Shown here is a 60-nucleotide RNA sequence from Salmo salar, a member of the family "mir-199 microRNA precursor family". About the family: This family consists of the microRNA (miRNA) precursor mir-199 which appears to be specific to humans. The family's consensus secondary structure was predicted with RNAalifold. Its family is annotated with RISC complex and miRNA-mediated post-transcriptional gene silencing in the Gene Ontology. Rfam's curators put it in the seed alignment.

RNA sequence: CCCAGUGUUCAGACUACCUGUUCAGGGUCUUACUGGUGUACAGUAGUCUGCACAUUGGUU
Numbered sequence: 001c002c003c004a005g006u007g008u009u010c011a012g013a014c015u016a017c018c019u020g021u022u023c024a025g026g027g028u029c030u031u032a033c034u035g036g037u038g039u040a041c042a043g044u045a046g047u048c049u050g051c052a053c054a055u056u057g058g059u060u
Stems, first nucleotide, its partner, number of pairs: 002058007010050007018043004023038002